[Rfam]
RNA sequence: GCGUGCGUUCGGGGAAUGCCCGACCUUCGGGUCGGGGUUCAGGGUCAGAACCAAUUCCCCGAACUCUGC
Dot-bracket structure: ......(((((((((((..(((((......))))).((((.......))))..))))))))))).....